[Rfam]
RNA sequence: GAAGUUGGUCGGAUAGUCGCUGGUAGUUUUCUAUCAGAGGAAAGUCCGGGCUCCAUAGAGCAAAGUGCUAGUUAACGACUAGGUAUGGUGACAUAAUGGAAAGUGCUGCAGAGAUUUAGACUACCCAUUAACUGGGAAAAGGUGAAAAGGUGCGGUAAGAGCGCACCGCGCAACUGGUGACAAUUGUGGCAAGGUAAACCCCACUUGGAGCAAGCUCAAAUAGGCUGCCAUUGGUGCUGCUCGCACAAGGUAGCGGGUAGAGUGCUAAAGCAUACUGGUAACAGUAUGCGUAGAUGAAUGACUAUCGAUAACAGAACCCGGCUUAUAGACCGACUUCCCUU
Numbered sequence: 001g002a003a004g005u006u007g008g009u010c011g012g013a014u015a016g017u018c019g020c021u022g023g024u025a026g027u028u029u030u031c032u033a034u035c036a037g038a039g040g041a042a043a044g045u046c047c048g049g050g051c052u053c054c055a056u057a058g059a060g061c062a063a064a065g066u067g068c069u070a071g072u073u074a075a076c077g078a079c080u081a082g083g084u085a086u087g088g089u090g091a092c093a094u095a096a097u098g099g100a101a102a103g104u105g106c107u108g109c110a111g112a113g114a115u116u117u118a119g120a121c122u123a124c125c126c127a128u129u130a131a132c133u134g135g136g137a138a139a140a141g142g143u144g145a146a147a148a149g150g151u152g153c154g155g156u157a158a159g160a161g162c163g164c165a166c167c168g169c170g171c172a173a174c175u176g177g178u179g180a181c182a183a184u185u186g187u188g189g190c191a192a193g194g195u196a197a198a199c200c201c202c203a204c205u206u207g208g209a210g211c212a213a214g215c216u217c218a219a220a221u222a223g224g225c226u227g228c229c230a231u232u233g234g235u236g237c238u239g240c241u242c243g244c245a246c247a248a249g250g251u252a253g254c255g256g257g258u259a260g261a262g263u264g265c266u267a268a269a270g271c272a273u274a275c276u277g278g279u280a281a282c283a284g285u286a287u288g289c290g291u292a293g294a295u296g297a298a299u300g301a302c303u304a305u306c307g308a309u310a311a312c313a314g315a316a317c318c319c320g321g322c323u324u325a326u327a328g329a330c331c332g333a334c335u336u337c338c339c340u341u
Stems, first nucleotide, its partner, number of pairs: 001337010011326001012306007020037007042324003046321005051210004058242004063206005068082005083097001084095004098201002103199002105195003121141002124136004149167006168190001169188005175182002214263004224254006234246004270289008
Bacterial RNase P class A: a 341-nucleotide RNA from a Bathymodiolus septemdierum thioautotrophic gill symbiont.
Pairs were carried over by alignment from the consensus structure, which is taken from published work.
A search with the family's covariance model found it, with a score of 316 bits.
It is annotated as a ribozyme.
Lineage of the source: Bacteria > Pseudomonadati > Gammaproteobacteria > sulfur-oxidizing symbionts > Bathymodiolus septemdierum thioautotrophic gill symbiont.